This 78-nucleotide sequence from Schistosoma curassoni belongs to the Rfam family "mir-3492 microRNA precursor family".
RNA sequence: AGAUUUUCGAAUCCGAGCUGAGAUUUCGUCCGAUACCAACCCAUUAGGGCUGAUCAGACUUCCAAGAUAAGUGAAGAU
Numbered sequence: 001a002g003a004u005u006u007u008c009g010a011a012u013c014c015g016a017g018c019u020g021a022g023a024u025u026u027c028g029u030c031c032g033a034u035a036c037c038a039a040c041c042c043a044u045u046a047g048g049g050c051u052g053a054u055c056a057g058a059c060u061u062c063c064a065a066g067a068u069a070a071g072u073g074a075a076g077a078u
Base pairs, nucleotide, nucleotide: 004075005074006073008071011068012067013066017062020061021060022059024058025057026056028054029053030052
Dot-bracket structure: ...(((.(..(((...(..(((.(((.(((.....................))).)))))))...)))..).)))...
The match comes from Rfam's covariance-model search (49 bits). Pairs were carried over by alignment from the consensus structure, which was predicted with RNAalifold.